[Rfam]
RNA sequence: AGCCAUCUUGUUGGGAGAAGCCGGUUCGAUCCGGUGCCGAAGGAGCAACCGCCCCGGAAACUCUCAGGCGAAAGGACCACAAGGUGCCA
Numbered sequence: 001a002g003c004c005a006u007c008u009u010g011u012u013g014g015g016a017g018a019a020g021c022c023g024g025u026u027c028g029a030u031c032c033g034g035u036g037c038c039g040a041a042g043g044a045g046c047a048a049c050c051g052c053c054c055c056g057g058a059a060a061c062u063c064u065c066a067g068g069c070g071a072a073a074g075g076a077c078c079a080c081a082a083g084g085u086g087c088c089a
Stems, first nucleotide, its partner, number of pairs: 006084005012079003021034004036069003039065002043063003049057002
The family of this 89-nucleotide RNA from Ciceribacter lividus is "Glycine riboswitch aptamer". This family represents the bacterial glycine riboswitch. The base pairs follow the family's consensus structure. The match comes from Rfam's covariance-model search (59 bits).